[Rfam]
Record summary: The family of this 73-nucleotide sequence from Saccharomyces cerevisiae is "tRNA". Its family is annotated with triplet codon-amino acid adaptor activity in the Gene Ontology. It is annotated as a transfer RNA. Taxonomically the source falls in Saccharomyces (Eukaryota, Ascomycota, Saccharomycotina, Saccharomycetes). The base pairs follow the family's consensus structure, which is taken from published work.
RNA sequence: GGGCGUGUGGCGUAGUCGGUAGCGCGCUCCCUUAGCAUGGGAGAGGUCUCCGGUUCGAUUCCGGACUCGUCCA
Numbered sequence: 001g002g003g004c005g006u007g008u009g010g011c012g013u014a015g016u017c018g019g020u021a022g023c024g025c026g027c028u029c030c031c032u033u034a035g036c037a038u039g040g041g042a043g044a045g046g047u048c049u050c051c052g053g054u055u056c057g058a059u060u061c062c063g064g065a066c067u068c069g070u071c072c073a
Base pairs, nucleotide, nucleotide: 001072002071003070004069005068007066010025011024012023013022027043028042029041030040031039049065050064051063052062053061